[Rfam]
RNA sequence: UUCUUAUCAAGAGUGGUGGAGGGACUGGCCCUAUGAAACCCGGCAACCGAUUUUCUUUUUUAGAGAAAACACGGUGCCAAUUCCUGCAGAGUAUUUACUCUGGCAGAUAAGAA
Numbered sequence: 001u002u003c004u005u006a007u008c009a010a011g012a013g014u015g016g017u018g019g020a021g022g023g024a025c026u027g028g029c030c031c032u033a034u035g036a037a038a039c040c041c042g043g044c045a046a047c048c049g050a051u052u053u054u055c056u057u058u059u060u061u062a063g064a065g066a067a068a069a070c071a072c073g074g075u076g077c078c079a080a081u082u083c084c085u086g087c088a089g090a091g092u093a094u095u096u097a098c099u100c101u102g103g104c105a106g107a108u109a110a111g112a113a
Base pairs, nucleotide, nucleotide: 001113002112003111004110005109006108007107008106013041015040016039017038021031022030023029025086027084028083042078043077044076045075047074048073049070051068052067053066054065082105087102088101089100090099091098092097